[Rfam]
RNA sequence: AAUUAAGAUAGAGGAGCAAAAUUUAAGAGUAUUAUUAUGGAGAUAAGCACGAUGAAGUAAUAAAAAAGGAAAUUUUGCCGAAGUUAAUAGCGGAUGCUUUAAGGCUAUUAGCUGGUUUUAUAUAGAAUAUAUGUAAAACUGUCACAAAAUAUUUUGUGGAGGGCUAUUACUUUA
Numbered sequence: 001a002a003u004u005a006a007g008a009u010a011g012a013g014g015a016g017c018a019a020a021a022u023u024u025a026a027g028a029g030u031a032u033u034a035u036u037a038u039g040g041a042g043a044u045a046a047g048c049a050c051g052a053u054g055a056a057g058u059a060a061u062a063a064a065a066a067a068g069g070a071a072a073u074u075u076u077g078c079c080g081a082a083g084u085u086a087a088u089a090g091c092g093g094a095u096g097c098u099u100u101a102a103g104g105c106u107a108u109u110a111g112c113u114g115g116u117u118u119u120a121u122a123u124a125g126a127a128u129a130u131a132u133g134u135a136a137a138a139c140u141g142u143c144a145c146a147a148a149a150u151a152u153u154u155u156g157u158g159g160a161g162g163g164c165u166a167u168u169a170c171u172u173u174a
Stems, first nucleotide, its partner, number of pairs: 007168005016078009032063007082113010114140011142159007
A member of the RNA family "Lysine riboswitch aptamer" from Clostridium senegalense, 174 nucleotides long. Taxonomically the source falls in Clostridium (Bacteria, Clostridia, Eubacteriales, Clostridiaceae). The match comes from Rfam's covariance-model search (119 bits).